[Rfam]
RNA: SAM riboswitch aptamer (S box leader)
RNA sequence: GUCUUAUCAAGAGUGGUGGAGGGACUGGCCCUAUGAAACCCGGCAACCUACUAAGUUAGUAAUUAGGUUAUGAAUGUGUACUAUCAAUUAGUUUUGAUGGUUAUAUUUUGAUGCAAAUUAUUAAUAGUGUGGUGCUAAUUCCAGCAGUAUUAAACUGAUAGAUAAGUA
Numbered sequence: 001g002u003c004u005u006a007u008c009a010a011g012a013g014u015g016g017u018g019g020a021g022g023g024a025c026u027g028g029c030c031c032u033a034u035g036a037a038a039c040c041c042g043g044c045a046a047c048c049u050a051c052u053a054a055g056u057u058a059g060u061a062a063u064u065a066g067g068u069u070a071u072g073a074a075u076g077u078g079u080a081c082u083a084u085c086a087a088u089u090a091g092u093u094u095u096g097a098u099g100g101u102u103a104u105a106u107u108u109u110g111a112u113g114c115a116a117a118u119u120a121u122u123a124a125u126a127g128u129g130u131g132g133u134g135c136u137a138a139u140u141c142c143a144g145c146a147g148u149a150u151u152a153a154a155c156u157g158a159u160a161g162a163u164a165a166g167u168a
Stems, first nucleotide, its partner, number of pairs: 003166006013041001015040003021031003025144004042136004047132002049129004140160001145157004